Shown here is a 136-nucleotide sequence from Nothoprocta perdicaria, a member of the family "Small nucleolar RNA SNORA57". By type it is an H/ACA-box small nucleolar RNA. Rfam's curators write: U99 belongs to the H/ACA class of snoRNAs which are thought to guide the sites of modification of uridines to pseudouridines, the target for this family is unknown. For this family Rfam cites "Identification of 13 novel human modification guide RNAs" (Vitali et al., Nucleic Acids Res, 2003).

[Rfam]
RNA sequence: CCUCCCGUUCUUGGCGGCCCCGGGCCACGCGGUGCCCGGGCCCGUGAUGUGCGGAGGCGAGAGCGAAGCUCGGCGCGAUGUCUUCGGUGCCCGCGGCCUCCGUCCGCCGGUCCUACCCUCGCGCGCCGGGACACGG
Number, nucleotide and partner (000 for none) at each position: 001c057002c056003u055004c054005c053006c000007g000008u000009u000010c000011u000012u000013g000014g000015c044016g043017g042018c000019c040020c039021c000022g037023g036024g035025c034026c000027a000028c000029g000030c000031g000032g000033u000034g025035c024036c023037c022038g000039g020040g019041c000042c017043c016044g015045u000046g000047a000048u000049g000050u000051g000052c000053g005054g004055a003056g002057g001058c000059g000060a000061g000062a000063g000064c000065g000066a000067a000068g000069c000070u000071c128072g127073g126074c125075g124076c123077g000078a000079u000080g000081u000082c000083u000084u000085c000086g000087g000088u000089g000090c110091c109092c000093g107094c106095g105096g104097c000098c000099u000100c000101c000102g000103u000104c096105c095106g094107c093108c000109g091110g090111u000112c000113c000114u000115a000116c000117c000118c000119u000120c000121g000122c000123g076124c075125g074126c073127c072128g071129g000130g000131a000132c000133a000134c000135g000136g000